[Rfam]
RNA sequence: UGAAAUUGCAGGUAAGAAUAAUAAAAAAAGCUGUAUACUCGUGCAACCGAAUUAACGUUUAAGCGAUAUGUAAUAUCGUCGGCCACGGGGCCGUCCCUUACAUGGGGGCGGUUUUUUUGAUU
Numbered sequence: 001u002g003a004a005a006u007u008g009c010a011g012g013u014a015a016g017a018a019u020a021a022u023a024a025a026a027a028a029a030g031c032u033g034u035a036u037a038c039u040c041g042u043g044c045a046a047c048c049g050a051a052u053u054a055a056c057g058u059u060u061a062a063g064c065g066a067u068a069u070g071u072a073a074u075a076u077c078g079u080c081g082g083c084c085a086c087g088g089g090g091c092c093g094u095c096c097c098u099u100a101c102a103u104g105g106g107g108g109c110g111g112u113u114u115u116u117u118u119g120a121u122u
Base pairs, nucleotide, nucleotide: 007035008034009033010032011031013028038089039088040087041086042085043084047082048081049080050059051058052057063079064078065077066076067075068074090112091111092110093109094108095107096106097105098104
RNA: DUF3800-I RNA
Organism: Lactobacillus pasteurii